[Rfam]
RNA sequence: AACUGUCAAUGAUGAUUUUUGUUUAAAAACAAUGGGAAUCUCUCUGAAUAAGAGUGAAAGAGAAUUUUUUUCUGAUGCAGUA
Numbered sequence: 001a002a003c004u005g006u007c008a009a010u011g012a013u014g015a016u017u018u019u020u021g022u023u024u025a026a027a028a029a030c031a032a033u034g035g036g037a038a039u040c041u042c043u044c045u046g047a048a049u050a051a052g053a054g055u056g057a058a059a060g061a062g063a064a065u066u067u068u069u070u071u072c073u074g075a076u077g078c079a080g081u082a
Stems, first nucleotide, its partner, number of pairs: 002081005

This 82-nucleotide RNA sequence from Parambassis ranga belongs to the Rfam family "Small nucleolar RNA SNORD79". It is annotated as a C/D-box small nucleolar RNA. The match comes from Rfam's covariance-model search (76 bits). Gene Ontology terms of the family: nucleolus and RNA processing. Taxonomically the source falls in Parambassis (Eukaryota, Gnathostomata, Teleostei, Acanthomorphata). snoRNA U79 or Z22 is found in intron 7 of the gas5 gene in humans and is also present in mice. For this family Rfam cites "Purified box C/D snoRNPs are able to reproduce site-specific 2'-O-methylation of target RNA in vitro" (Galardi et al., Mol Cell Biol, 2002).